[Rfam]
RNA sequence: CUCAUCAGUCGCUCAGUAGUCAGUGUAGAUUCUGUUUCUUCGGUCAGCAGCUACAUCUGGCUACUGGGUCUCUGAAGACGUCU
Numbered sequence: 001c002u003c004a005u006c007a008g009u010c011g012c013u014c015a016g017u018a019g020u021c022a023g024u025g026u027a028g029a030u031u032c033u034g035u036u037u038c039u040u041c042g043g044u045c046a047g048c049a050g051c052u053a054c055a056u057c058u059g060g061c062u063a064c065u066g067g068g069u070c071u072c073u074g075a076a077g078a079c080g081u082c083u
Stems, first nucleotide, its partner, number of pairs: 013067006020060003023056006032050004
Record summary: Shown here is an 83-nucleotide RNA sequence from Python bivittatus, a member of the family "mir-221 microRNA precursor family". For this family Rfam cites "Parallel DNA pyrosequencing unveils new zebrafish microRNAs" (Soares et al., BMC Genomics, 2009). Its family is annotated with miRNA-mediated post-transcriptional gene silencing and RISC complex in the Gene Ontology.